[Rfam]
RNA sequence: AGCACAUUUCUUAAGACCACUUUCCGAGAAAAUUUCAAUUAACUUUACAUUGUAAAAAUAAUUGAUUUAUUUCUCAACAUCCUUAAUGGCUGUUCAGUGGAUAGUGAUUGGGUCAUAGGUGUGCCAAAUAACCAAAUUUUUAUUAGCUUUGAAUUGUCAUACUUUAAGCUUCGCUAUAGUAUGUUUAAAAUUGUUAGUAAAAACAUC
Number, nucleotide and partner (000 for none) at each position: 001a000002g124003c123004a122005c121006a120007u119008u118009u000010c112011u111012u110013a109014a108015g000016a000017c000018c106019a105020c104021u103022u000023u101024c100025c099026g075027a074028g073029a072030a071031a070032a068033u000034u000035u065036c000037a000038a062039u061040u060041a059042a000043c000044u000045u055046u054047a053048c052049a000050u000051u000052g048053u047054a046055a045056a000057a000058a000059u041060a040061a039062u038063u000064g000065a035066u000067u000068u032069a000070u031071u030072u029073c028074u027075c026076a000077a093078c092079a091080u000081c089082c088083u000084u000085a000086a000087u000088g082089g081090c000091u079092g078093u077094u000095c000096a000097g000098u000099g025100g024101a023102u000103a021104g020105u019106g018107a000108u014109u013110g012111g011112g010113u000114c000115a000116u000117a000118g008119g007120u006121g005122u004123g003124c002125c000126a000127a000128a000129u000130a000131a000132c000133c000134a000135a000136a000137u000138u202139u201140u200141u199142a198143u197144u000145a195146g194147c193148u000149u000150u000151g000152a000153a000154u000155u181156g180157u179158c000159a177160u176161a175162c000163u000164u000165u000166a000167a000168g000169c000170u000171u000172c000173g000174c000175u161176a160177u159178a000179g157180u156181a155182u000183g000184u000185u000186u000187a000188a000189a000190a000191u000192u000193g147194u146195u145196a000197g143198u142199a141200a140201a139202a138203a000204c000205a000206u000207c000
This 207-nucleotide RNA from Hydra vulgaris belongs to the Rfam family "Small nucleolar RNA SNORA53".
Taxonomically the source falls in Hydra (Eukaryota, Anthoathecata, Aplanulata, Hydridae).
By type it is an H/ACA-box small nucleolar RNA.
Rfam 15.1 lists 1,090 matches to the family in 800 species.
Rfam describes the family as follows. The snoRNA ACA53 belongs to the H/ACA family of pseudouridylation guide snoRNAs.
Gene Ontology terms of the family: nucleolus and RNA processing.